[Rfam]
RNA: GA-cis RNA
RNA sequence: GAGAGCUUGUCCCCUCGUGCGAAGCACGAUUAUCAUGGGGACAAGCGACCUGCCGCCGAGUCGGCAGACGAGGGGGCAGAUCCACAG
Numbered sequence: 001g002a003g004a005g006c007u008u009g010u011c012c013c014c015u016c017g018u019g020c021g022a023a024g025c026a027c028g029a030u031u032a033u034c035a036u037g038g039g040g041a042c043a044a045g046c047g048a049c050c051u052g053c054c055g056c057c058g059a060g061u062c063g064g065c066a067g068a069c070g071a072g073g074g075g076g077c078a079g080a081u082c083c084a085c086a087g
Base pairs, nucleotide, nucleotide: 008043009042010041011040012039013038016028017027018026019025052077053076054075056073057072060069061068